bZIP non canonical Hac1/Xbp1 intron: a 68-nucleotide RNA from Choiromyces venosus.
Rfam 15.1 lists 1,325 matches to the family in 1,320 species.
A reference for the family is Iracane et al. (2018), "Identification of an Exceptionally Long Intron in the HAC1 Gene of Candida parapsilosis", mSphere.
From the family's description: bZIP intron RNA is a non-canonical intron that was first reported in HAC1 gene in yeast and XBP1 gene in Metazoa.
The family's RNA type in Rfam is small RNA.
A search with the family's covariance model found it, with a score of 43 bits.
RNA sequence: UCAAGCUCUCGGUAUGGCACAUCAAUCUGCUGCAUUGAUGUGUGACCUGCAGUGUCUACCGACAGCGA
Numbered sequence: 001u002c003a004a005g006c007u008c009u010c011g012g013u014a015u016g017g018c019a020c021a022u023c024a025a026u027c028u029g030c031u032g033c034a035u036u037g038a039u040g041u042g043u044g045a046c047c048u049g050c051a052g053u054g055u056c057u058a059c060c061g062a063c064a065g066c067g068a
Stems, first nucleotide, its partner, number of pairs: 005066003010061005021039006044056003